[Rfam]
RNA sequence: CAGGAAGUCCUUGCACGUUAUUCCUGUUAAAUAACAGCUUGAAACAAAUUCAAAGAAUAA
Numbered sequence: 001c002a003g004g005a006a007g008u009c010c011u012u013g014c015a016c017g018u019u020a021u022u023c024c025u026g027u028u029a030a031a032u033a034a035c036a037g038c039u040u041g042a043a044a045c046a047a048a049u050u051c052a053a054a055g056a057a058u059a060a
Stems, first nucleotide, its partner, number of pairs: 001026006
Dot-bracket structure: ((((((..............))))))..................................
Shown here is a 60-nucleotide sequence from Chlorobium sp., a member of the family "Lnt RNA". The source organism's lineage runs through Bacteria, Chlorobiota, Chlorobiia, Chlorobiaceae and Chlorobium. It scores 67 bits against the family's covariance model. The base pairs follow the family's consensus structure, which is taken from published work.